The record is a 115-nucleotide sequence from Streptomyces sp. Root264, which matches "SAM (S-adenosyl methionine) riboswitch aptamer" in Rfam.
Its family is annotated with regulation of gene expression and S-adenosylmethionine metabolic process in the Gene Ontology.
Rfam 15.1 lists 2,360 matches to the family in 1,305 species.
The literature on the family includes a 2008 paper in RNA by Weinberg et al., "The aptamer core of SAM-IV riboswitches mimics the ligand-binding site of SAM-I riboswitches".
It scores 100 bits against the family's covariance model.
NCBI's taxonomy places the organism under Bacteria, Bacillati, Actinomycetes, Streptomycetaceae, Streptomyces.
Pairs were carried over by alignment from the consensus structure, which is taken from published work.
[Rfam]
RNA sequence: GGCAUCGAGUGUCAGCGUCAAGCCCUGGCUCGCUGACCGGCAACCCUCCCGCGCGGUGGGGUGCUCCAGGUGAAAGCCCGGCGGGGAUCACCGAUGAUCUCCGCAAGCGCGUGGC
Number, nucleotide and partner (000 for none) at each position: 001g078002g077003c076004a000005u000006c000007g000008a000009g038010u000011g037012u036013c035014a034015g033016c032017g000018u000019c000020a000021a030022g029023c000024c000025c000026u000027g000028g000029c022030u021031c000032g016033c015034u014035g013036a012037c011038c009039g065040g064041c063042a000043a000044c061045c060046c059047u000048c056049c055050c000051g000052c000053g000054c000055g049056g048057u000058g000059g046060g045061g044062u000063g041064c040065u039066c000067c000068a000069g000070g000071u000072g000073a000074a000075a000076g003077c002078c001079c000080g000081g104082c103083g102084g101085g100086g099087a098088u097089c096090a095091c000092c000093g000094a000095u090096g089097a088098u087099c086100u085101c084102c083103g082104c081105a000106a000107g000108c000109g000110c000111g000112u000113g000114g000115c000